[Rfam]
RNA: Ribosomal S15 leader
RNA sequence: GCAAACAGCUGAAUUAAAGAUCGGCUUAUCUAUUUACAGUUAUUUUAAGGUGUAACAAUGUCUCUAAGUGUUAAAGCAAAAUCGAAAAUUGUUUCUGAUUUUGGUCGUGAUGCU
Numbered sequence: 001g002c003a004a005a006c007a008g009c010u011g012a013a014u015u016a017a018a019g020a021u022c023g024g025c026u027u028a029u030c031u032a033u034u035u036a037c038a039g040u041u042a043u044u045u046u047a048a049g050g051u052g053u054a055a056c057a058a059u060g061u062c063u064c065u066a067a068g069u070g071u072u073a074a075a076g077c078a079a080a081a082u083c084g085a086a087a088a089u090u091g092u093u094u095c096u097g098a099u100u101u102u103g104g105u106c107g108u109g110a111u112g113c114u
Stems, first nucleotide, its partner, number of pairs: 007026006044068004049063002